Plastid-psbM 3UTR RNA: a 78-nucleotide sequence from Malus sieversii. Lineage of the source: Eukaryota > Tracheophyta > rosids > Maleae > Malus. The literature on the family includes a 2023 paper in Plant Commun by Richter et al., "Retrograde signaling in plants: A critical review focusing on the GUN pathway and beyond".

[Rfam]
RNA sequence: ACAAUAGUAUGGUAGAAAGAUUCAGAUAUUUCUUUCUACCAUACUAUCUAGUAUUGUUAUUGUAGUGUAUAAAGUUGU
Numbered sequence: 001a002c003a004a005u006a007g008u009a010u011g012g013u014a015g016a017a018a019g020a021u022u023c024a025g026a027u028a029u030u031u032c033u034u035u036c037u038a039c040c041a042u043a044c045u046a047u048c049u050a051g052u053a054u055u056g057u058u059a060u061u062g063u064a065g066u067g068u069a070u071a072a073a074g075u076u077g078u
Base pairs, nucleotide, nucleotide: 004047005046006045007044008043009042010041011040012039013038014037015036016035017034018033019032026031
Dot-bracket structure: ...((((((((((((((((......(....)))))))))))))))))...............................

Pairs were carried over by alignment from the consensus structure, which was predicted with LocARNA. From the family's description: Plastid psbM is a non-coding RNA (ncRNA) recognised in plastids. The family has 237 seed sequences and 627 matches in Rfam 15.1.